Shown here is a 126-nucleotide sequence from Buttiauxella agrestis, a member of the family "Salmonella enterica Typhi npcRNA 44".
Rfam 15.1 lists 474 matches to the family in 137 species.
The family's consensus secondary structure was predicted with CMfinder.
A search with the family's covariance model found it, with a score of 60 bits.
The family's RNA type in Rfam is non-coding RNA gene.
The literature on the family includes a 2010 paper in Nucleic Acids Res by Chinni et al., "Experimental identification and characterization of 97 novel npcRNA candidates in Salmonella enterica serovar Typhi".

RNA sequence: UCCGGAACAAGCUGAAAAUUGAAACGACAUGUCGUCUCAUUCCUCCGUAAUAAGGAAUGGGAAUACGAUAUGUUCGAGUCUCUCAAAUUUUCACAACAUCGAUUGUGUCUCACGAGACAUCUUCGG
Numbered sequence: 001u002c003c004g005g006a007a008c009a010a011g012c013u014g015a016a017a018a019u020u021g022a023a024a025c026g027a028c029a030u031g032u033c034g035u036c037u038c039a040u041u042c043c044u045c046c047g048u049a050a051u052a053a054g055g056a057a058u059g060g061g062a063a064u065a066c067g068a069u070a071u072g073u074u075c076g077a078g079u080c081u082c083u084c085a086a087a088u089u090u091u092c093a094c095a096a097c098a099u100c101g102a103u104u105g106u107g108u109c110u111c112a113c114g115a116g117a118c119a120u121c122u123u124c125g126g
Stems, first nucleotide, its partner, number of pairs: 011094001014092007025076003029073004100125003105120003